[Rfam]
RNA: mir-1302 microRNA precursor family
Organism: Eschrichtius robustus
RNA sequence: UUUUUAGUGUAAGUAAGUCCUACGCAAUAUUUGAGACAUACUUACACUAAAA
Numbered sequence: 001u002u003u004u005u006a007g008u009g010u011a012a013g014u015a016a017g018u019c020c021u022a023c024g025c026a027a028u029a030u031u032u033g034a035g036a037c038a039u040a041c042u043u044a045c046a047c048u049a050a051a052a
Base pairs, nucleotide, nucleotide: 006048007047008046009045010044011043012042014040015039018036019035021033022031